[Rfam]
RNA sequence: UGAUGUCUGUUCCUCUCAUUCUUGCAAGCCAUAGACAAUGGGAUUUUAUGUCAUCAAAUAAUAAAGCUGGCCUUUCUUCACUCAGUGUGUCUUUAGGUGGGUUUGGCCCUUUAUGGCACCACUGAAUUUUGCAGUCACACAUUC
Numbered sequence: 001u002g003a004u005g006u007c008u009g010u011u012c013c014u015c016u017c018a019u020u021c022u023u024g025c026a027a028g029c030c031a032u033a034g035a036c037a038a039u040g041g042g043a044u045u046u047u048a049u050g051u052c053a054u055c056a057a058a059u060a061a062u063a064a065a066g067c068u069g070g071c072c073u074u075u076c077u078u079c080a081c082u083c084a085g086u087g088u089g090u091c092u093u094u095a096g097g098u099g100g101g102u103u104u105g106g107c108c109c110u111u112u113a114u115g116g117c118a119c120c121a122c123u124g125a126a127u128u129u130u131g132c133a134g135u136c137a138c139a140c141a142u143u144c
Stems, first nucleotide, its partner, number of pairs: 001056005007050001014043005020037001022035002069136003074133001082125005087119005095111002099108002